[Rfam]
RNA sequence: CUGCACUACUUGGGGAGAUAGCGGUGCCCUGUUACCCGCAAUCCGCUACAGCGGGGAGGAAUUCCCGACCGAGGGUGUAUGCUGUGUCGUCUGACCCGGAUAAGCGGUGUUGAAGAUCUGGUCUUGCGCAAUAGGGCUCUGUGAACCGUGUCAGGUGGGGAACCAAGCAGCACUAAGCAGUCUACCCUGUGUGCCGCAAGGUUGCCGUUUCGGAGCUGGCUGUCCGGGUAACGGGUGUAGCAUCCAUUCGGAGAAGGGUGUGCAG
Numbered sequence: 001c002u003g004c005a006c007u008a009c010u011u012g013g014g015g016a017g018a019u020a021g022c023g024g025u026g027c028c029c030u031g032u033u034a035c036c037c038g039c040a041a042u043c044c045g046c047u048a049c050a051g052c053g054g055g056g057a058g059g060a061a062u063u064c065c066c067g068a069c070c071g072a073g074g075g076u077g078u079a080u081g082c083u084g085u086g087u088c089g090u091c092u093g094a095c096c097c098g099g100a101u102a103a104g105c106g107g108u109g110u111u112g113a114a115g116a117u118c119u120g121g122u123c124u125u126g127c128g129c130a131a132u133a134g135g136g137c138u139c140u141g142u143g144a145a146c147c148g149u150g151u152c153a154g155g156u157g158g159g160g161a162a163c164c165a166a167g168c169a170g171c172a173c174u175a176a177g178c179a180g181u182c183u184a185c186c187c188u189g190u191g192u193g194c195c196g197c198a199a200g201g202u203u204g205c206c207g208u209u210u211c212g213g214a215g216c217u218g219g220c221u222g223u224c225c226g227g228g229u230a231a232c233g234g235g236u237g238u239a240g241c242a243u244c245c246a247u248u249c250g251g252a253g254a255a256g257g258g259u260g261u262g263c264a265g
Stems, first nucleotide, its partner, number of pairs: 001265006009058003012030004017025001019023001035055005064258003069253001073249005079243010092230002096227006104220002106217003115211002119207004123200006129191002132189005139180004148173004156165003
RNA: Bacterial large signal recognition particle RNA